[Rfam]
RNA sequence: AAUAUUUGUGGGGGAGCACUAUUAAUGUAUAUGCUAUUGGAGUUGGCAACGUUGAAGAUAGUAAAAAGAUUAUAGUGCCGAAAUAAAUAGGAAGGCCCGGCCUAUUUGUUGGACUUACUUUGGAUGGAAGUAAGGCUGUCAUUUUUUGAUGGAGAACCACCGACUGC
Numbered sequence: 001a002a003u004a005u006u007u008g009u010g011g012g013g014g015a016g017c018a019c020u021a022u023u024a025a026u027g028u029a030u031a032u033g034c035u036a037u038u039g040g041a042g043u044u045g046g047c048a049a050c051g052u053u054g055a056a057g058a059u060a061g062u063a064a065a066a067a068g069a070u071u072a073u074a075g076u077g078c079c080g081a082a083a084u085a086a087a088u089a090g091g092a093a094g095g096c097c098c099g100g101c102c103u104a105u106u107u108g109u110u111g112g113a114c115u116u117a118c119u120u121u122g123g124a125u126g127g128a129a130g131u132a133a134g135g136c137u138g139u140c141a142u143u144u145u146u147u148g149a150u151g152g153a154g155a156a157c158c159a160c161c162g163a164c165u166g167c
Base pairs, nucleotide, nucleotide: 006162008160009159010158011157016078017077018076019075020074021073022072024070032063033062034061035060036059037058038057082110083109084108085107086106087105088104089103090102091101111137112136114134115133116132117131118130119129120128121127139152140151141150142149143148
Shown here is a 167-nucleotide RNA sequence from a Mycoplasmatota bacterium, a member of the family "Lysine riboswitch aptamer". Pairs were carried over by alignment from the consensus structure, which is taken from published work. Gene Ontology term of the family: lysine biosynthetic process. Lineage of the source: Bacteria > Bacillati > Mycoplasmatota. It scores 80 bits against the family's covariance model.